[Rfam]
The family of this 92-nucleotide RNA from Gasterosteus aculeatus is "mir-146 microRNA precursor family". The family has 33 seed sequences and 1,617 matches in Rfam 15.1. Its family is annotated with miRNA-mediated post-transcriptional gene silencing and RISC complex in the Gene Ontology. The source organism's lineage runs through Eukaryota, Chordata, Vertebrata, Acanthomorphata and Gasterosteus.
RNA sequence: AUGAGUGUUGUACUAUGAGAACUGAAUUCCAUAGAUGGUGGCAUCUUCAGGUGUCAUCUAUGGGCUCAGUUCUUUUGGUACGGUACUAAUUU
Number, nucleotide and partner (000 for none) at each position: 001a000002u000003g000004a000005g000006u000007g000008u083009u082010g000011u080012a079013c078014u000015a000016u000017g000018a073019g072020a071021a070022c069023u068024g067025a066026a000027u000028u000029c000030c000031a000032u000033a059034g058035a057036u056037g000038g000039u000040g000041g000042c000043a000044u000045c000046u000047u000048c000049a000050g000051g000052u000053g000054u000055c000056a036057u035058c034059u033060a000061u000062g000063g000064g000065c000066u025067c024068a023069g022070u021071u020072c019073u018074u000075u000076u000077g000078g013079u012080a011081c000082g009083g008084u000085a000086c000087u000088a000089a000090u000091u000092u000